[Rfam]
RNA sequence: UAUAAGGGAUUCUGAGAUUUUACUUGCAACGUUUGACCACUCGUCUUAUUCAAAUUUUUUUGAAAUUAUUAUUUAUUUUAUUUGUGACUUACUUUAUUAUGUAUAGUACUUUAAGCACAACUUUUCAUUUUUUAUAUUUAAUUUUUUUUAAUAAGACGAGUGGUCAAACGUUGCAAGCAAAAACUCAAAAUCAUGCAUAUA
Numbered sequence: 001u002a003u004a005a006g007g008g009a010u011u012c013u014g015a016g017a018u019u020u021u022a023c024u025u026g027c028a029a030c031g032u033u034u035g036a037c038c039a040c041u042c043g044u045c046u047u048a049u050u051c052a053a054a055u056u057u058u059u060u061u062g063a064a065a066u067u068a069u070u071a072u073u074u075a076u077u078u079u080a081u082u083u084g085u086g087a088c089u090u091a092c093u094u095u096a097u098u099a100u101g102u103a104u105a106g107u108a109c110u111u112u113a114a115g116c117a118c119a120a121c122u123u124u125u126c127a128u129u130u131u132u133u134a135u136a137u138u139u140a141a142u143u144u145u146u147u148u149u150a151a152u153a154a155g156a157c158g159a160g161u162g163g164u165c166a167a168a169c170g171u172u173g174c175a176a177g178c179a180a181a182a183a184c185u186c187a188a189a190a191u192c193a194u195g196c197a198u199a200u201a
Stems, first nucleotide, its partner, number of pairs: 025175006032168018
Annotation: MIR812 microRNA precursor family: a 201-nucleotide RNA sequence from Oryza rufipogon. Rfam links the family to the GO terms RISC complex and miRNA-mediated post-transcriptional gene silencing.